[Rfam]
Background: This 86-nucleotide sequence from Neisseria chenwenguii belongs to the Rfam family "sRNA-Xcc1".
Nucleotides: 086
Stems, first nucleotide, its partner, number of pairs: 001078008013047004018042002028037003049064004
Number, partner (000 for none) and nucleotide at each position: 001078g002077g003076c004075g005074g006073g007072u008071u009000g010000a011000g012000a013047g014046a015045g016044c017000c018042u019041a020000a021000u022000a023000c024000a025000a026000u027000a028037c029036c030035c031000g032000c033000a034000a035030g036029g037028g038000g039000a040000a041019u042018a043000a044016g045015u046014u047013c048000c049064g050063c051062c052061g053000u054000c055000u056000a057000a058000c059000g060000u061052c062051g063050g064049u065000a066000g067000u068000u069000g070000a071008a072007g073006c074005c075004c076003g077002c078001c079000c080000a081000c082000c083000c084000a085000c086000u
Taxonomically the source falls in Neisseria (Bacteria, Pseudomonadota, Betaproteobacteria, Neisseriaceae). For this family Rfam cites "Genome-wide transcriptome analysis of the plant pathogen Xanthomonas identifies sRNAs with putative virulence functions" (Schmidtke et al., Nucleic Acids Res, 2011).